Description: Rfam assigns this 61-nucleotide sequence from Meridianimarinicoccus roseus to the family "terC RNA". The family's consensus secondary structure is taken from published work.
RNA sequence: UUACGGGUCCGGGCCCCUCUGGCAACCGCACGGCAGCCGGUUGCGAUGUCGGAACCAUCGU
Numbered sequence: 001u002u003a004c005g006g007g008u009c010c011g012g013g014c015c016c017c018u019c020u021g022g023c024a025a026c027c028g029c030a031c032g033g034c035a036g037c038c039g040g041u042u043g044c045g046a047u048g049u050c051g052g053a054a055c056c057a058u059c060g061u
Base pairs, nucleotide, nucleotide: 006055008053009052010051011050012049022044023043024042025041026040027039028038